A member of the RNA family "tRNA" from Sandaracinus amylolyticus, 87 nucleotides long. The organism belongs to Sandaracinus, within Bacteria.
[Rfam]
RNA sequence: GGAGAGGUGACCGAGUGGUCGAAGGUGCACGAUUGGAAAUCGUGUGUACUGGAGACAGUACCGCGGGUUCGAAUCCCGCCCUCUCCG
Numbered sequence: 001g002g003a004g005a006g007g008u009g010a011c012c013g014a015g016u017g018g019u020c021g022a023a024g025g026u027g028c029a030c031g032a033u034u035g036g037a038a039a040u041c042g043u044g045u046g047u048a049c050u051g052g053a054g055a056c057a058g059u060a061c062c063g064c065g066g067g068u069u070c071g072a073a074u075c076c077c078g079c080c081c082u083c084u085c086c087g
Stems, first nucleotide, its partner, number of pairs: 001086007010026003028044005063079005